Rfam assigns this 74-nucleotide RNA sequence from Pantoea sp. Eser to the family "Enterobacterial sRNA STnc240".
The organism belongs to Pantoea, within Bacteria.
By type it is a small RNA.

RNA sequence: CUAGGAUGAGGCAGAAUACGCGGCCUGCAAAAUCAGACCAUAACCGACGCUUACCGCGCCGGUUAUUUUUUCGC
Numbered sequence: 001c002u003a004g005g006a007u008g009a010g011g012c013a014g015a016a017u018a019c020g021c022g023g024c025c026u027g028c029a030a031a032a033u034c035a036g037a038c039c040a041u042a043a044c045c046g047a048c049g050c051u052u053a054c055c056g057c058g059c060c061g062g063u064u065a066u067u068u069u070u071u072c073g074c
Stems, first nucleotide, its partner, number of pairs: 011021002041065006048058002